Listeria sRNA rliA: a 224-nucleotide RNA sequence from Listeria monocytogenes. By type it is a small RNA. Lineage of the source: Bacteria > Bacillota > Bacilli > Listeriaceae > Listeria monocytogenes.
RNA sequence: AUAUGUAUAAAAAUGCAUUUUAUACACAUGGGAUUUUAGUUCUAUUUGAAAUAGGUUAUUUAUUAGAACGAUUUAAUGGCUUAAUUUAUUUUUCAAUGUAUAAAAUUAUGUAUAUUGACACAAUUUGUGUUAUUUUGAACAUGAAUUUAAGUAAAUCAAUUCUUAAUGUAUUGAUUUUCGCCUAAAAUAGGUCGUUCAUGACAAGAAUUGGACAUUUCAUUACA
Numbered sequence: 001a002u003a004u005g006u007a008u009a010a011a012a013a014u015g016c017a018u019u020u021u022a023u024a025c026a027c028a029u030g031g032g033a034u035u036u037u038a039g040u041u042c043u044a045u046u047u048g049a050a051a052u053a054g055g056u057u058a059u060u061u062a063u064u065a066g067a068a069c070g071a072u073u074u075a076a077u078g079g080c081u082u083a084a085u086u087u088a089u090u091u092u093u094c095a096a097u098g099u100a101u102a103a104a105a106u107u108a109u110g111u112a113u114a115u116u117g118a119c120a121c122a123a124u125u126u127g128u129g130u131u132a133u134u135u136u137g138a139a140c141a142u143g144a145a146u147u148u149a150a151g152u153a154a155a156u157c158a159a160u161u162c163u164u165a166a167u168g169u170a171u172u173g174a175u176u177u178u179c180g181c182c183u184a185a186a187a188u189a190g191g192u193c194g195u196u197c198a199u200g201a202c203a204a205g206a207a208u209u210g211g212a213c214a215u216u217u218c219a220u221u222a223c224a
Stems, first nucleotide, its partner, number of pairs: 001029002004026008030218001033215002037210007044152002047149004052083009106144006113137002116132006153177008162168001191202004